[Rfam]
RNA: mir-350 microRNA precursor family
Organism: Rhinolophus ferrumequinum
RNA sequence: GCUCCUACAAGAGUAAAGUGCAUGCGCUUUGGGACAGUGACGAAAAUGGUGUUCACAAAGCCCAUGCACUCUCACCCUUUAGGAGCU
Numbered sequence: 001g002c003u004c005c006u007a008c009a010a011g012a013g014u015a016a017a018g019u020g021c022a023u024g025c026g027c028u029u030u031g032g033g034a035c036a037g038u039g040a041c042g043a044a045a046a047u048g049g050u051g052u053u054c055a056c057a058a059a060g061c062c063c064a065u066g067c068a069c070u071c072u073c074a075c076c077c078u079u080u081a082g083g084a085g086c087u
Base pairs, nucleotide, nucleotide: 002085003084004083005082006081007080009079010078011077013075014074015072017070018069019068020067026061027060028059029058030057031056032054033053034052035051036050